Notes: Bacterial small signal recognition particle RNA: a 96-nucleotide sequence from Maridesulfovibrio salexigens. The family is grouped with related families in Rfam's "SRP clan". From the family's description: The signal recognition particle (SRP) is a universally conserved ribonucleoprotein involved in the co-translational targeting of proteins to membranes. Its family is annotated with signal recognition particle, plasma membrane targeting and SRP-dependent cotranslational protein targeting to membrane, signal sequence recognition in the Gene Ontology. Lineage of the source: Bacteria > Desulfovibrionia > Desulfovibrionales > Desulfovibrionaceae > Maridesulfovibrio salexigens. Rfam classes the family as a non-coding RNA gene.

RNA sequence: ACAGAGAGGCCGGAUGGCGGGUGCGCUGUGAACCCCGUCAGGUCCGAAAGGAAGCAGCGGUAACGGUUUAUCCCGGGUGUCCGGUCUCGCUGAAAG
Numbered sequence: 001a002c003a004g005a006g007a008g009g010c011c012g013g014a015u016g017g018c019g020g021g022u023g024c025g026c027u028g029u030g031a032a033c034c035c036c037g038u039c040a041g042g043u044c045c046g047a048a049a050g051g052a053a054g055c056a057g058c059g060g061u062a063a064c065g066g067u068u069u070a071u072c073c074c075g076g077g078u079g080u081c082c083g084g085u086c087u088c089g090c091u092g093a094a095a096g
Stems, first nucleotide, its partner, number of pairs: 004090001006088009015077001018075004025067005035060004043052003